[Rfam]
This 248-nucleotide sequence from Crocodylus porosus belongs to the Rfam family "Small nucleolar RNA SNORD17". NCBI's taxonomy places the organism under Eukaryota, Craniata, Euteleostomi, Sauropsida, Crocodylus. On this family, see Huttenhofer et al., EMBO J 2001: "RNomics: an experimental approach that identifies 201 candidates for novel, small, non-messenger RNAs in mouse". About the family: The snoRNA HBI-43 belongs to the C/D family of snoRNAs, guiding 2'O-ribose methylation at position U3797 of the 28S rRNA. Pseudouridylation in position U3797 is predicted to be guided by the H/ACA snoRNA ACA48.

RNA sequence: GUGAAGUGAUGAUGAAGUUUAUCCAUUCUCUGAGUGCUGCUGCACUGCCCCCCUGCAACACCCAGGUCCCUGUUCUAGGGGCUGUGUGCUGUGCAGCCUCCAGAUUCCCUGCAGCCUCUCAGUGUUCUACUGGGGGCUGUUGGCGUGUCUGGAUGGCUGCCUGCAGGAGUGAAGCAGAGCAGCAGAGCUGGAGCCUCUCUCCAUAGGGAGCUUCAUCUCAACCAAGAUGAGGGAUGCUGUCUGAUCAC
Numbered sequence: 001g002u003g004a005a006g007u008g009a010u011g012a013u014g015a016a017g018u019u020u021a022u023c024c025a026u027u028c029u030c031u032g033a034g035u036g037c038u039g040c041u042g043c044a045c046u047g048c049c050c051c052c053c054u055g056c057a058a059c060a061c062c063c064a065g066g067u068c069c070c071u072g073u074u075c076u077a078g079g080g081g082c083u084g085u086g087u088g089c090u091g092u093g094c095a096g097c098c099u100c101c102a103g104a105u106u107c108c109c110u111g112c113a114g115c116c117u118c119u120c121a122g123u124g125u126u127c128u129a130c131u132g133g134g135g136g137c138u139g140u141u142g143g144c145g146u147g148u149c150u151g152g153a154u155g156g157c158u159g160c161c162u163g164c165a166g167g168a169g170u171g172a173a174g175c176a177g178a179g180c181a182g183c184a185g186a187g188c189u190g191g192a193g194c195c196u197c198u199c200u201c202c203a204u205a206g207g208g209a210g211c212u213u214c215a216u217c218u219c220a221a222c223c224a225a226g227a228u229g230a231g232g233g234a235u236g237c238u239g240u241c242u243g244a245u246c247a248c
Stems, first nucleotide, its partner, number of pairs: 010247004017240002023233002026231003030226002034222002039183005045177004050171001051169001053167002056163002061088001063086002066082006093160006107145001108143001111140006118134007185219003189215004194210001